[Rfam]
RNA sequence: ACUCUGGAGAGCGUCCGCGUGGCGGGCCGCCGAAGGGGAACGUGCCUACAGGCGCGACACUCUCAGGCAUCAGGACAGAGU
Numbered sequence: 001a002c003u004c005u006g007g008a009g010a011g012c013g014u015c016c017g018c019g020u021g022g023c024g025g026g027c028c029g030c031c032g033a034a035g036g037g038g039a040a041c042g043u044g045c046c047u048a049c050a051g052g053c054g055c056g057a058c059a060c061u062c063u064c065a066g067g068c069a070u071c072a073g074g075a076c077a078g079a080g081u
Base pairs, nucleotide, nucleotide: 001081002080003079004078005077006076013027014026015025016024029068030067031066032064033063036062037061038060042055043054
RNA: Glycine riboswitch aptamer
Organism: Microbacterium sediminis